[Rfam]
RNA sequence: GAGGUUGGUGAAAUGGUCGCCCUGCCAUUGGUGGGGAGGAAAGUCCGAACUCCGCAGGACAAGGCGCCUCUUAAGAGGAGGGUCUCACCAAAAGGUGGGAACGGCAAGUGCAGCAGAAAGUAAACAUCCCAAUCUAGUAUUGGGAAAUAGAUGAAAUGGUGGUGUAAGAGACCACCAGUAUUUAUGGAAACAUGAAUAGCUGGGUAAACCCCGCCUGGAGCAAGAUCAAGCAAUCUAGUGUAGUUCGCACGUUACGGAUGGGUAGAUCGCAAGAUCCCGAUCGCGAGGUCGAGACCAGAUGAAUGACCAUUAUCCGCCCUCCGGCGGAAACAGAAUUCGGCUUAUGAUCCAACCUCAUAC
Numbered sequence: 001g002a003g004g005u006u007g008g009u010g011a012a013a014u015g016g017u018c019g020c021c022c023u024g025c026c027a028u029u030g031g032u033g034g035g036g037a038g039g040a041a042a043g044u045c046c047g048a049a050c051u052c053c054g055c056a057g058g059a060c061a062a063g064g065c066g067c068c069u070c071u072u073a074a075g076a077g078g079a080g081g082g083u084c085u086c087a088c089c090a091a092a093a094g095g096u097g098g099g100a101a102c103g104g105c106a107a108g109u110g111c112a113g114c115a116g117a118a119a120g121u122a123a124a125c126a127u128c129c130c131a132a133u134c135u136a137g138u139a140u141u142g143g144g145a146a147a148u149a150g151a152u153g154a155a156a157u158g159g160u161g162g163u164g165u166a167a168g169a170g171a172c173c174a175c176c177a178g179u180a181u182u183u184a185u186g187g188a189a190a191c192a193u194g195a196a197u198a199g200c201u202g203g204g205u206a207a208a209c210c211c212c213g214c215c216u217g218g219a220g221c222a223a224g225a226u227c228a229a230g231c232a233a234u235c236u237a238g239u240g241u242a243g244u245u246c247g248c249a250c251g252u253u254a255c256g257g258a259u260g261g262g263u264a265g266a267u268c269g270c271a272a273g274a275u276c277c278c279g280a281u282c283g284c285g286a287g288g289u290c291g292a293g294a295c296c297a298g299a300u301g302a303a304u305g306a307c308c309a310u311u312a313u314c315c316g317c318c319c320u321c322c323g324g325c326g327g328a329a330a331c332a333g334a335a336u337u338c339g340g341c342u343u344a345u346g347a348u349c350c351a352a353c354c355u356c357a358u359a360c
Base pairs, nucleotide, nucleotide: 001356002355003354004353005352006351007350008349011345012311013310014309015308016307017306018305020036021035022034023033024032025031026030041343042342043341045340046339047338048337049336050220051219052218053217057246058245059244060243062216063215064214065213066212067081068080069079070078071077082102083100084099085098086097087096088095089094103211104210108209109208110205111204125150126148127145128144129143130142131141132140133139158176159175160174161173162172163171178200179198180197181196182195183194184193185192186191224268225267226266227265234258235257236256238250239249240248241247275294276293278291279290280289281288282287
Dot-bracket structure: ((((((((..((((((((.(((((((...)))))))....[[[.[[[[[((((...[[[[.((((((((((.....)))))((((((((....))))))).)((...((((.............(((((((((.....)))))))..).).......((((((.......)))))).(((((((((....)))))))).)...))..)))))))))))))...((((......(((.((((.]]]])))).....)))......))))......((.(((((....))))).))..........)))))))........................]]]]]]]].)...))))))))....